[Rfam]
RNA sequence: GUGAAAUUAAUCACAUACAAACAUACACCCCUUUGUUUGAGCGUGAACAUUUCUCCCAUCCCCUUUGUGUAAGAUAAGAAAGGCGCCUUCCGGACGUGGAAGGCGCCUUUC
Numbered sequence: 001g002u003g004a005a006a007u008u009a010a011u012c013a014c015a016u017a018c019a020a021a022c023a024u025a026c027a028c029c030c031c032u033u034u035g036u037u038u039g040a041g042c043g044u045g046a047a048c049a050u051u052u053c054u055c056c057c058a059u060c061c062c063c064u065u066u067g068u069g070u071a072a073g074a075u076a077a078g079a080a081a082g083g084c085g086c087c088u089u090c091c092g093g094a095c096g097u098g099g100a101a102g103g104c105g106c107c108u109u110u111c
Base pairs, nucleotide, nucleotide: 003053004052005051006050007049011046012045013044014043018039019038020037021036022035023034070076081108082107083106084105085104086103087102088101089100090099091098
RNA: RNA Staph. aureus E (RoxS)
Organism: Planococcus rifietoensis